[Rfam]
RNA: mir-16 microRNA precursor family
RNA sequence: GCAUGUGUAUAGAUACAUUAAUAUUGGAGAAGGUAAACCUUCUCCAAUAUUAAUGUAUCUAUACACAUGU
Numbered sequence: 001g002c003a004u005g006u007g008u009a010u011a012g013a014u015a016c017a018u019u020a021a022u023a024u025u026g027g028a029g030a031a032g033g034u035a036a037a038c039c040u041u042c043u044c045c046a047a048u049a050u051u052a053a054u055g056u057a058u059c060u061a062u063a064c065a066c067a068u069g070u
Base pairs, nucleotide, nucleotide: 001070002069003068005066006065007064010063011060012059013058014057015056016055017054020051021050022049023048024047025046026045027044